This 101-nucleotide sequence from Albidovulum denitrificans belongs to the Rfam family "Glycine riboswitch aptamer". Pairs were carried over by alignment from the consensus structure. It scores 57 bits against the family's covariance model. Taxonomically the source falls in Albidovulum (Bacteria, Pseudomonadati, Pseudomonadota, Alphaproteobacteria).

RNA sequence: GCGUCAGGUCCGGGAGAAUCCGGUCGGGGUCACCCCCCGCGCCGGUGCCGAAGGAGCAACCGCCCCGGUAAUCUCUCAGGCGCAAGGACCGGCCUGGCCAC
Numbered sequence: 001g002c003g004u005c006a007g008g009u010c011c012g013g014g015a016g017a018a019u020c021c022g023g024u025c026g027g028g029g030u031c032a033c034c035c036c037c038c039g040c041g042c043c044g045g046u047g048c049c050g051a052a053g054g055a056g057c058a059a060c061c062g063c064c065c066c067g068g069u070a071a072u073c074u075c076u077c078a079g080g081c082g083c084a085a086g087g088a089c090c091g092g093c094c095u096g097g098c099c100a101c
Base pairs, nucleotide, nucleotide: 007095008094010092011091012090013089020045021044022043023042047081048080049079050077051076054075055074056073060068061067